[Rfam]
RNA sequence: GAGUGAAGGAAGCAUGGUAAUGUGUACAGAUAUUGAUUUGGAUCUCUAGACAUGCUCUCUCUGAUGCCUUUUAGCUAUGAUUUGAGGGCAUGGUUCCGCAGCAAAACA
Numbered sequence: 001g002a003g004u005g006a007a008g009g010a011a012g013c014a015u016g017g018u019a020a021u022g023u024g025u026a027c028a029g030a031u032a033u034u035g036a037u038u039u040g041g042a043u044c045u046c047u048a049g050a051c052a053u054g055c056u057c058u059c060u061c062u063g064a065u066g067c068c069u070u071u072u073a074g075c076u077a078u079g080a081u082u083u084g085a086g087g088g089c090a091u092g093g094u095u096c097c098g099c100a101g102c103a104a105a106a107c108a
Base pairs, nucleotide, nucleotide: 012025013024014023015022040091043088044087050081054075055074056073

Background
Rfam assigns this 108-nucleotide RNA from Rhododendron williamsianum to the family "Small nucleolar RNA snoR100". Taxonomically the source falls in Rhododendron (Eukaryota, Viridiplantae, Magnoliopsida, Ericales). Rfam classes the family as an H/ACA-box small nucleolar RNA. The base pairs follow the family's consensus structure, which was predicted with WAR. Rfam 15.1 lists 1,851 matches to the family in 220 species.